The record is a 56-nucleotide RNA from Callithrix jacchus, which matches "Small nucleolar RNA SNORD2" in Rfam. Lineage of the source: Eukaryota > Craniata > Euarchontoglires > Callitrichinae > Callithrix. A search with the family's covariance model found it, with a score of 40 bits. Rfam classes the family as a C/D-box small nucleolar RNA. On this family, see Zhou et al., Gene 2004: "Identification of a novel box C/D snoRNA from mouse nucleolar cDNA library". Its family is annotated with RNA processing and nucleolus in the Gene Ontology.
[Rfam]
RNA sequence: CAGUAAUAAUAAAUCAACUGACCUGAAAUGAAGAGAAUACUCAUUGCUGAUUACUU
Numbered sequence: 001c002a003g004u005a006a007u008a009a010u011a012a013a014u015c016a017a018c019u020g021a022c023c024u025g026a027a028a029u030g031a032a033g034a035g036a037a038u039a040c041u042c043a044u045u046g047c048u049g050a051u052u053a054c055u056u
Stems, first nucleotide, its partner, number of pairs: 002055005